Rfam assigns this 182-nucleotide sequence to the family "Small nucleolar RNA SNORA23". By type it is an H/ACA-box small nucleolar RNA. It is one of the family's seed sequences. Rfam describes the family as follows. The members of this family belong to the H/ACA class of snoRNAs which are thought to guide the sites of modification of uridines to pseudouridines. Rfam links the family to the GO terms nucleolus and RNA processing.

[Rfam]
RNA sequence: GCAGUACUGUGUGCAUAGUUGUUCAUCUGUGUCUGGUGGUAUAGUCUAUUUGUGUUCUACAUUUAGACUGUACUACUCACACAAAACCUGUGGCCAAAGAUGAACUUGAGAUCAUAGUACUGGUCUAGUGACGUCUGAAUGACAUGCCUCCCACUGGCCAGCCUCCAUACUCUCAAACAUCU
Numbered sequence: 001g002c003a004g005u006a007c008u009g010u011g012u013g014c015a016u017a018g019u020u021g022u023u024c025a026u027c028u029g030u031g032u033c034u035g036g037u038g039g040u041a042u043a044g045u046c047u048a049u050u051u052g053u054g055u056u057c058u059a060c061a062u063u064u065a066g067a068c069u070g071u072a073c074u075a076c077u078c079a080c081a082c083a084a085a086a087c088c089u090g091u092g093g094c095c096a097a098a099g100a101u102g103a104a105c106u107u108g109a110g111a112u113c114a115u116a117g118u119a120c121u122g123g124u125c126u127a128g129u130g131a132c133g134u135c136u137g138a139a140u141g142a143c144a145u146g147c148c149u150c151c152c153a154c155u156g157g158c159c160a161g162c163c164u165c166c167a168u169a170c171u172c173u174c175a176a177a178c179a180u181c182u
Stems, first nucleotide, its partner, number of pairs: 013091003030083003034079003037075006044068005051061003107175005120161006127155004132146001133143003